[Rfam]
RNA: DnaX ribosomal frameshifting element
Organism: Buttiauxella agrestis
RNA sequence: AGCAGGGAGCCAACAAAGCAAAAAAGAAUGAGCCGGCAGCGCAAAAUGUAGCGCGGCCGGCGAAG
Numbered sequence: 001a002g003c004a005g006g007g008a009g010c011c012a013a014c015a016a017a018g019c020a021a022a023a024a025a026g027a028a029u030g031a032g033c034c035g036g037c038a039g040c041g042c043a044a045a046a047u048g049u050a051g052c053g054c055g056g057c058c059g060g061c062g063a064a065g
Stems, first nucleotide, its partner, number of pairs: 032061006039054002043049001
Dot-bracket structure: ...............................((((((.((..(.....)...)).))))))....